Description:
A member of the RNA family "mir-8799 microRNA precursor family" from Canis lupus, 90 nucleotides long. Its Rfam clan is "mir-8791 microRNA precursor clan". It scores 69 bits against the family's covariance model.
RNA sequence: CGGGGGAGGUCGGAUCCUGGGCUGUGUCCUGGCUCCCUGUGCUCCCGGGCCUGCGCUGUUGGAUUCCCGCAUCCUGCCGUGCAGCCCUCU
Numbered sequence: 001c002g003g004g005g006g007a008g009g010u011c012g013g014a015u016c017c018u019g020g021g022c023u024g025u026g027u028c029c030u031g032g033c034u035c036c037c038u039g040u041g042c043u044c045c046c047g048g049g050c051c052u053g054c055g056c057u058g059u060u061g062g063a064u065u066c067c068c069g070c071a072u073c074c075u076g077c078c079g080u081g082c083a084g085c086c087c088u089c090u
Base pairs, nucleotide, nucleotide: 002089003088004087005086006085009082010081011079012078013077016076019073020072023069024068026066027063028062029061030058031057032056033055035053039051041050042049043048